This 337-nucleotide RNA sequence from Torulaspora globosa belongs to the Rfam family "Nuclear RNase P".
NCBI's taxonomy places the organism under Eukaryota, Opisthokonta, Dikarya, Saccharomycotina, Torulaspora.
A search with the family's covariance model found it, with a score of 86 bits.

[Rfam]
RNA sequence: UCAGUAGUAGUUUCUACGAUUAAGAAACCUGUUUGCCCAAGGAGCCUACAGCUCAUACGUAGCAGGUGGGAAAUUCGGUGAAACGCUACGGGACCCUUGAAAGCGACUAGCUUUCUUGUACCAUUCGCCUCGGCGAAAUUUCCGUGAGGAGGGUCUGGGGAACCAGGCUCAUUGGUCGUGGUCAUCAGAAAUCAACUCGUGAUCCUUCGGGAGCUCGAGGAUGGGAAGGCCACGGGAGUCCCGUUUAACUUGAGCUCUUCGAGCUUAAGGUUGUUGAGUGCAAUCGUAGAACUAAUCAGCCAGUUGGUUAGAACCCGAUACCGAUUACUACUGCUGU
Numbered sequence: 001u002c003a004g005u006a007g008u009a010g011u012u013u014c015u016a017c018g019a020u021u022a023a024g025a026a027a028c029c030u031g032u033u034u035g036c037c038c039a040a041g042g043a044g045c046c047u048a049c050a051g052c053u054c055a056u057a058c059g060u061a062g063c064a065g066g067u068g069g070g071a072a073a074u075u076c077g078g079u080g081a082a083a084c085g086c087u088a089c090g091g092g093a094c095c096c097u098u099g100a101a102a103g104c105g106a107c108u109a110g111c112u113u114u115c116u117u118g119u120a121c122c123a124u125u126c127g128c129c130u131c132g133g134c135g136a137a138a139u140u141u142c143c144g145u146g147a148g149g150a151g152g153g154u155c156u157g158g159g160g161a162a163c164c165a166g167g168c169u170c171a172u173u174g175g176u177c178g179u180g181g182u183c184a185u186c187a188g189a190a191a192u193c194a195a196c197u198c199g200u201g202a203u204c205c206u207u208c209g210g211g212a213g214c215u216c217g218a219g220g221a222u223g224g225g226a227a228g229g230c231c232a233c234g235g236g237a238g239u240c241c242c243g244u245u246u247a248a249c250u251u252g253a254g255c256u257c258u259u260c261g262a263g264c265u266u267a268a269g270g271u272u273g274u275u276g277a278g279u280g281c282a283a284u285c286g287u288a289g290a291a292c293u294a295a296u297c298a299g300c301c302a303g304u305u306g307g308u309u310a311g312a313a314c315c316c317g318a319u320a321c322c323g324a325u326u327a328c329u330a331c332u333g334c335u336g337u
Stems, first nucleotide, its partner, number of pairs: 002336003007331003012291007027067005042054004076323005091241004139152005153168006177234007196219002292311007